[Rfam]
RNA: SAM-I/IV (S-adenosyl methionine) riboswitch aptamer
Organism: Alcaligenes sp. EGD-AK7
RNA sequence: UUGCUAUAUCAAGAGUUGGGACAACCCAUGCCAACCUGUGUACCCGCACAAGGUGGAUUCAAGAUAUGGCCAUCUGGCAAUCAAUGGGAUCAUC
Numbered sequence: 001u002u003g004c005u006a007u008a009u010c011a012a013g014a015g016u017u018g019g020g021a022c023a024a025c026c027c028a029u030g031c032c033a034a035c036c037u038g039u040g041u042a043c044c045c046g047c048a049c050a051a052g053g054u055g056g057a058u059u060c061a062a063g064a065u066a067u068g069g070c071c072a073u074c075u076g077g078c079a080a081u082c083a084a085u086g087g088g089a090u091c092a093u094c
Base pairs, nucleotide, nucleotide: 006067007066008065009064010063015029017028018027019026020025031056032055035053036052037051038049039048040047042090044088045087069078070077071076